[Rfam]
Nucleotides: 218
Base pairs, nucleotide, nucleotide: 001030002029003028004027005026006025007024008023009022011020012019039065040064041063042062043061044060047057048056049055091203092202093201094200095199096197097196098115099114100113101112102111103110116195117194118193119192120191122189123188124187126185128182130180133177134176135175136174138171139170140169141168146163147162148161149160150159
Number, partner (000 for none) and nucleotide at each position: 001030c002029u003028g004027c005026g006025g007024c008023g009022c010000a011020g012019g013000c014000u015000u016000c017000a018000a019012c020011c021000g022009g023008c024007g025006c026005c027004g028003c029002a030001g031000u032000u033000u034000a035000a036000c037000c038000a039065g040064a041063g042062c043061a044060a045000u046000g047057g048056c049055u050000u051000a052000c053000a054000a055049a056048g057047c058000g059000g060044u061043u062042g063041c064040u065039c066000u067000u068000a069000u070000u071000u072000u073000g074000a075000a076000g077000a078000a079000a080000u081000g082000a083000a084000g085000a086000c087000c088000a089000g090000c091203a092202g093201g094200g095199g096197c097196a098115u099114c100113c101112g102111g103110g104000c105000u106000g107000g108000u109000a110103c111102c112101c113100g114099g115098a116195c117194u118193a119192u120191c121000a122189g123188c124187g125000u126185g127000a128182u129000u130180c131000u132000g133177a134176g135175u136174g137000g138171c139170u140169u141168g142000u143000u144000u145000u146163g147162g148161u149160c150159g151000c152000u153000g154000u155000a156000u157000u158000g159150c160149g161148a162147u163146u164000g165000c166000u167000u168141c169140a170139a171138g172000c173000g174136u175135g176134c177133u178000u179000g180130g181000u182128g183000u184000a185126u186000u187124c188123g189122c190000c191120g192119a193118u194117g195116g196097u197096g198000u199095c200094c201093c202092c203091u204000a205000a206000c207000c208000g209000a210000g211000g212000g213000u214000g215000a216000c217000c218000a
The family of this 218-nucleotide RNA from Pseudomonas asplenii is "sucA-II RNA". NCBI's taxonomy places the organism under Bacteria, Pseudomonadota, Gammaproteobacteria, Pseudomonadaceae, Pseudomonas. The base pairs follow the family's consensus structure, which is taken from published work. A search with the family's covariance model found it, with a score of 178 bits. The family's RNA type in Rfam is cis-regulatory element.